Source information:
A member of the RNA family "mir-2 microRNA precursor family" from Hyalella azteca, 67 nucleotides long. On this family, see Ambros, Cell 2001: "microRNAs: tiny regulators with great potential". A search with the family's covariance model found it, with a score of 51 bits. Pairs were carried over by alignment from the consensus structure, which was predicted with PFOLD.

[Rfam]
RNA sequence: GGAGCUAUCAAAGUGAUUGUGAGACGCUAUUAAAUGUUCGUAUCACAGCCACCUUUGAUGAGCUCUC
Numbered sequence: 001g002g003a004g005c006u007a008u009c010a011a012a013g014u015g016a017u018u019g020u021g022a023g024a025c026g027c028u029a030u031u032a033a034a035u036g037u038u039c040g041u042a043u044c045a046c047a048g049c050c051a052c053c054u055u056u057g058a059u060g061a062g063c064u065c066u067c
Base pairs, nucleotide, nucleotide: 006060007059008058009057010056011055012054013053014051015050017048018047019046020045021044022043026041027040